Rfam assigns this 225-nucleotide RNA sequence from Arthrobacter sp. PAMC 25486 to the family "c-di-AMP riboswitch aptamer (ydaO/yuaA leader)". Lineage of the source: Bacteria > Bacillati > Actinomycetota > Actinomycetes > Arthrobacter. On this family, see Barrick et al., Proc Natl Acad Sci U S A 2004: "New RNA motifs suggest an expanded scope for riboswitches in bacterial genetic control". Rfam's curators write: This family represents a conserved RNA structure found upstream of the ydaO and yuaA genes in Bacillus subtilis and related genes in other bacteria. A search with the family's covariance model found it, with a score of 54 bits.

RNA sequence: UCGCAGCAUGGACAGUAACCAAUGAGGCAGGGGCGGGGGAACCACUUUUGAUAGGCAAUCCAGCCUGUCUUGGGGUGAAGCCCAUCCACAGUACAACUCAUUUCUGACGCAAUCCGUUGGGUUGCGUCAUGACCUGAGCUGUGCCAAAAGCGUGGGCCGGAUCAACUGCAUGACUCUCUGAUCCGAAUCCGACAGCUAACUUCGCAGGUGCUUUAUAGAGAGGUU
Numbered sequence: 001u002c003g004c005a006g007c008a009u010g011g012a013c014a015g016u017a018a019c020c021a022a023u024g025a026g027g028c029a030g031g032g033g034c035g036g037g038g039g040a041a042c043c044a045c046u047u048u049u050g051a052u053a054g055g056c057a058a059u060c061c062a063g064c065c066u067g068u069c070u071u072g073g074g075g076u077g078a079a080g081c082c083c084a085u086c087c088a089c090a091g092u093a094c095a096a097c098u099c100a101u102u103u104c105u106g107a108c109g110c111a112a113u114c115c116g117u118u119g120g121g122u123u124g125c126g127u128c129a130u131g132a133c134c135u136g137a138g139c140u141g142u143g144c145c146a147a148a149a150g151c152g153u154g155g156g157c158c159g160g161a162u163c164a165a166c167u168g169c170a171u172g173a174c175u176c177u178c179u180g181a182u183c184c185g186a187a188u189c190c191g192a193c194a195g196c197u198a199a200c201u202u203c204g205c206a207g208g209u210g211c212u213u214u215a216u217a218g219a220g221a222g223g224u225u
Base pairs, nucleotide, nucleotide: 001031002030033205034204035203036202037201038200043072044071073190074189075188081156082155083154084153159184160183161182162181163180164179